[Rfam]
RNA sequence: CCACCAGACCGGGCCCCUCUGGCAGCUCCCACGAGCUGUGAUGUCGGACUGGCAUU
Dot-bracket structure: .....((.((((.........(((((((....)))))))....)))).))......
Numbered sequence: 001c002c003a004c005c006a007g008a009c010c011g012g013g014c015c016c017c018u019c020u021g022g023c024a025g026c027u028c029c030c031a032c033g034a035g036c037u038g039u040g041a042u043g044u045c046g047g048a049c050u051g052g053c054a055u056u
Stems, first nucleotide, its partner, number of pairs: 006050002009047004022039007
The family of this 56-nucleotide sequence from Allomesorhizobium alhagi is "terC RNA". The source organism's lineage runs through Bacteria, Pseudomonadati, Hyphomicrobiales, Allomesorhizobium and Allomesorhizobium alhagi. It scores 55 bits against the family's covariance model. The family's consensus secondary structure is taken from published work.